The record is a 386-nucleotide RNA from Corynebacterium yudongzhengii, which matches "transfer-messenger RNA" in Rfam.
Pairs were carried over by alignment from the consensus structure, which is taken from published work.
The family is grouped with related families in Rfam's "tRNA clan".
A search with the family's covariance model found it, with a score of 131 bits.
The organism belongs to Corynebacterium, within Bacteria.
[Rfam]
RNA sequence: GGGGCUGAUUUAGGUUUCGACUCCGGACAUGAAGCCAGGGGAAGCGUGCCGGUGCAGGCUGGAGACCACCGUAAGCGUCGCAGCAACUUGAUAAGCGCCGAGAAGAACUCUCAGCGUGACUACGCCCUCGCUGCCUAACUUGCAGCGACCGCGUGUCUGUCAGACCGGGCUCGUCACUGGCCCGGACCCUGGCAUCGACUAAAGUGACUUGCCUUCCGGCCGCGUCAGCGGGGCCGGUGGGGACCUCAUACCGCUGACUGGGCCCAUCAUCCGGAACGGAGUCCGACCACGCCGGAGGGCCGAGCAGAGAUCAUCUUCGGACUGCGCACGGAGAAGCCCUGGCGACGUGCUGGAGGACCCGGGUUCAAUUCCCGGCAGCUCCACCA
Number, nucleotide and partner (000 for none) at each position: 001g382002g381003g380004g379005c378006u377007g376008a000009u000010u000011u000012a000013g000014g000015u000016u000017u000018c000019g000020a000021c355022u354023c353024c352025g351026g350027a000028c000029a000030u000031g000032a000033a000034g343035c342036c341037a340038g339039g338040g337041g000042a000043a000044g000045c330046g329047u328048g327049c326050c071051g070052g069053u068054g067055c000056a000057g000058g084059c083060u082061g081062g000063a000064g000065a000066c000067c054068a053069c052070c051071g050072u000073a000074a000075g000076c000077g000078u000079c000080g000081c061082a060083g059084c058085a000086a000087c000088u000089u000090g000091a000092u000093a000094a000095g000096c000097g000098c000099c000100g000101a000102g000103a000104a000105g000106a000107a000108c000109u000110c000111u000112c000113a000114g000115c000116g000117u000118g000119a000120c000121u000122a000123c000124g000125c000126c000127c000128u148129c147130g146131c145132u144133g143134c142135c000136u000137a000138a000139c000140u000141u000142g134143c133144a132145g131146c130147g129148a128149c000150c000151g000152c000153g000154u000155g000156u000157c000158u194159g193160u192161c191162a190163g189164a000165c185166c184167g183168g182169g181170c180171u179172c000173g208174u207175c206176a205177c000178u204179g171180g170181c169182c168183c167184g166185g165186a000187c000188c000189c163190u162191g161192g160193c159194a158195u000196c000197g000198a000199c000200u000201a000202a000203a000204g178205u176206g175207a174208c173209u000210u000211g000212c241213c240214u239215u000216c237217c236218g235219g234220c233221c000222g000223c000224g258225u257226c256227a255228g254229c253230g000231g000232g000233g220234c219235c218236g217237g216238u000239g214240g213241g212242g000243a000244c000245c000246u000247c000248a000249u000250a000251c000252c000253g229254c228255u227256g226257a225258c224259u000260g000261g301262g300263c299264c298265c297266a000267u295268c294269a000270u000271c000272c000273g000274g000275a000276a000277c000278g000279g288280a000281g322282u321283c320284c319285g000286a317287c000288c279289a000290c000291g000292c000293c000294g268295g267296a000297g265298g264299g263300c262301c261302g000303a000304g000305c000306a000307g000308a000309g000310a000311u000312c000313a000314u000315c000316u000317u286318c000319g284320g283321a282322c281323u000324g000325c000326g049327c048328a047329c046330g045331g000332a000333g000334a000335a000336g000337c040338c039339c038340u037341g036342g035343c034344g000345a000346c000347g000348u000349g000350c026351u025352g024353g023354a022355g021356g000357a000358c000359c375360c374361g373362g372363g371364u000365u000366c000367a000368a000369u000370u000371c363372c362373c361374g360375g359376c007377a006378g005379c004380u003381c002382c001383a000384c000385c000386a000